[Rfam]
RNA sequence: CCGUCCGUCCCGUGGGACACAUCGACGACGUGGGGCGGCACACGGCUACUCUGACUGCGUGCGCCUUCCCGAGCCGGAGACGCAAAGCCGACAGCCGUCGCAUCCCAGGGAGUACAUCCAUG
Numbered sequence: 001c002c003g004u005c006c007g008u009c010c011c012g013u014g015g016g017a018c019a020c021a022u023c024g025a026c027g028a029c030g031u032g033g034g035g036c037g038g039c040a041c042a043c044g045g046c047u048a049c050u051c052u053g054a055c056u057g058c059g060u061g062c063g064c065c066u067u068c069c070c071g072a073g074c075c076g077g078a079g080a081c082g083c084a085a086a087g088c089c090g091a092c093a094g095c096c097g098u099c100g101c102a103u104c105c106c107a108g109g110g111a112g113u114a115c116a117u118c119c120a121u122g
Base pairs, nucleotide, nucleotide: 060084061083062082063081065079066078067077068076087101088100090099091098092097

The family of this 122-nucleotide RNA sequence from Streptomyces genisteinicus is "Streptomyces-metH RNA". The match comes from Rfam's covariance-model search (109 bits).